[Rfam]
RNA: U1A polyadenylation inhibition element (PIE)
Organism: Mastacembelus armatus
RNA sequence: UCAUGAAGCAUUGCACCCAGGGUCUGGCUUACCAGACAUUGUACCUGGAGCUUAACUUUUUUAUAAUUAAAUCUUGAU
Numbered sequence: 001u002c003a004u005g006a007a008g009c010a011u012u013g014c015a016c017c018c019a020g021g022g023u024c025u026g027g028c029u030u031a032c033c034a035g036a037c038a039u040u041g042u043a044c045c046u047g048g049a050g051c052u053u054a055a056c057u058u059u060u061u062u063a064u065a066a067u068u069a070a071a072u073c074u075u076g077a078u
Base pairs, nucleotide, nucleotide: 005056006053007052008051009050017048018047019046020045022037023036024035025034026033